This 54-nucleotide RNA sequence from Anabarilius grahami belongs to the Rfam family "UnaL2 LINE 3' element".
RNA sequence: ACUGUUCUCAUCUGUAAGUCGCUUUGGAGAAAAGCAUCUGCUAAAUGACUAAAU
Numbered sequence: 001a002c003u004g005u006u007c008u009c010a011u012c013u014g015u016a017a018g019u020c021g022c023u024u025u026g027g028a029g030a031a032a033a034g035c036a037u038c039u040g041c042u043a044a045a046u047g048a049c050u051a052a053a054u
Base pairs, nucleotide, nucleotide: 013043014041015040016039021035022034023033024032025031
On this family, see Baba et al., RNA 2004: "Solution structure of an RNA stem-loop derived from the 3' conserved region of eel LINE UnaL2". About the family: The eel long interspersed element (LINE) UnaL2 and its partner short interspersed element (SINE) share a conserved 3' tail containing a stem-loop that is critical for their retrotransposition. Presumably, the first step of retrotransposition is the recognition of their 3' tails by UnaL2-encoded reverse transcriptase.